[Rfam]
RNA sequence: UGGUGAAUUACUGGGCAUUUACUCCUUUGGCAGGUAGUUUAUAAUCACAUACAAACUCACUGCCGAGGGAGAUUUGCCCGGCAAUUCACCA
Numbered sequence: 001u002g003g004u005g006a007a008u009u010a011c012u013g014g015g016c017a018u019u020u021a022c023u024c025c026u027u028u029g030g031c032a033g034g035u036a037g038u039u040u041a042u043a044a045u046c047a048c049a050u051a052c053a054a055a056c057u058c059a060c061u062g063c064c065g066a067g068g069g070a071g072a073u074u075u076g077c078c079c080g081g082c083a084a085u086u087c088a089c090c091a
Base pairs, nucleotide, nucleotide: 005087006086007085008084009083011081012080013079014078015077016076017075022071023070024069025068028065029064030063031062032061033060036057037056038055039054040053
Rfam assigns this 91-nucleotide sequence from Corymbia citriodora to the family "mir-399 microRNA precursor family". A reference for the family is Jones-Rhoades and Bartel (2004), "Computational Identification of Plant MicroRNAs and Their Targets, Including a Stress-Induced miRNA", Mol Cell. The family has 13 seed sequences and 2,396 matches in Rfam 15.1. Rfam links the family to the GO terms RISC complex and miRNA-mediated post-transcriptional gene silencing. About the family: mir-399 was identified in both Arabidopsis thaliana and Oryza sativa computationally and was later experimentally verified. mir-399 is thought to target mRNAs coding for a phosphatase transporter. The mature sequence is excised from the 3' arm of the hairpin.